Rfam assigns this 126-nucleotide sequence from Corynebacterium durum to the family "atpB RNA".
The sequence is in the family's curated seed alignment.
By type it is a cis-regulatory element.
Pairs were carried over by alignment from the consensus structure, which is taken from published work.
The source organism's lineage runs through Bacteria, Bacillati, Actinomycetota, Actinomycetes and Corynebacterium durum.
RNA sequence: CCAUGAUCGCUGCGAUGAUGUGCGACGGAGUCCGCAGCGGUCAAGGAAGAUUUCAGACGUCCAUCGCACCGUGCGGUUUUAUGCCCGUGCGGCCCGAACACGGGAGAGAACGCUGAGCGUUACAAC
Numbered sequence: 001c002c003a004u005g006a007u008c009g010c011u012g013c014g015a016u017g018a019u020g021u022g023c024g025a026c027g028g029a030g031u032c033c034g035c036a037g038c039g040g041u042c043a044a045g046g047a048a049g050a051u052u053u054c055a056g057a058c059g060u061c062c063a064u065c066g067c068a069c070c071g072u073g074c075g076g077u078u079u080u081a082u083g084c085c086c087g088u089g090c091g092g093c094c095c096g097a098a099c100a101c102g103g104g105a106g107a108g109a110a111c112g113c114u115g116a117g118c119g120u121u122a123c124a125a126c
Base pairs, nucleotide, nucleotide: 001046002045004043005042006041007040008039009038010037011036012035069092070091071090072089073088074087075086076085